The family of this 102-nucleotide sequence from Prolemur simus is "Y RNA".
RNA sequence: GGCUGGUCCAAGUGCAGUGGUGUUUACAACUAAUUGAUCACAAAUAGUUACAGGUUCCUUUGUUCCUUCUCCACUCUCACUGCUUCACUUUACUAAUUUUAA
Numbered sequence: 001g002g003c004u005g006g007u008c009c010a011a012g013u014g015c016a017g018u019g020g021u022g023u024u025u026a027c028a029a030c031u032a033a034u035u036g037a038u039c040a041c042a043a044a045u046a047g048u049u050a051c052a053g054g055u056u057c058c059u060u061u062g063u064u065c066c067u068u069c070u071c072c073a074c075u076c077u078c079a080c081u082g083c084u085u086c087a088c089u090u091u092a093c094u095a096a097u098u099u100u101a102a
Base pairs, nucleotide, nucleotide: 001098002097004095005094006093007092010090011089014086016081017080018079019078020077022076028064029063030062032060033059
The family's consensus secondary structure is taken from published work. Y RNAs are components of the Ro ribonucleoprotein particle (Ro RNP), in association with Ro60 and La proteins.